[Rfam]
RNA sequence: AAGCAGUCGUUCAGUGGCGCAAGCGAUUUCUUCGUGCGUUUGUGCCUAAUCUUUGACUGCGAGAGUAUUGUUGUCAUAGUCAAGCGGUCCGCUAUCGGUGUAGCAUUCUGUUCAAGAUUUGACUCAUAUUU
Numbered sequence: 001a002a003g004c005a006g007u008c009g010u011u012c013a014g015u016g017g018c019g020c021a022a023g024c025g026a027u028u029u030c031u032u033c034g035u036g037c038g039u040u041u042g043u044g045c046c047u048a049a050u051c052u053u054u055g056a057c058u059g060c061g062a063g064a065g066u067a068u069u070g071u072u073g074u075c076a077u078a079g080u081c082a083a084g085c086g087g088u089c090c091g092c093u094a095u096c097g098g099u100g101u102a103g104c105a106u107u108c109u110g111u112u113c114a115a116g117a118u119u120u121g122a123c124u125c126a127u128a129u130u131u
Stems, first nucleotide, its partner, number of pairs: 003060007016046010073123004078119004083112005091104005
Dot-bracket structure: ..(((((((......((((((((((...........)))))))))).......)))))))............((((.((((.(((((...(((((....)))))...)))))...))))))))........

Shown here is a 131-nucleotide RNA sequence from Caenorhabditis latens, a member of the family "Caenorhabditis snoRNA ceN126".
Gene Ontology terms of the family: RNA processing and nucleolus.
The family's consensus secondary structure was predicted with RNAalifold.
NCBI's taxonomy places the organism under Eukaryota, Metazoa, Rhabditidae, Peloderinae, Caenorhabditis.
The literature on the family includes a 2007 paper in BMC Mol Biol by Jia et al., "Systematic identification of non-coding RNA 2,2,7-trimethylguanosine cap structures in Caenorhabditis elegans".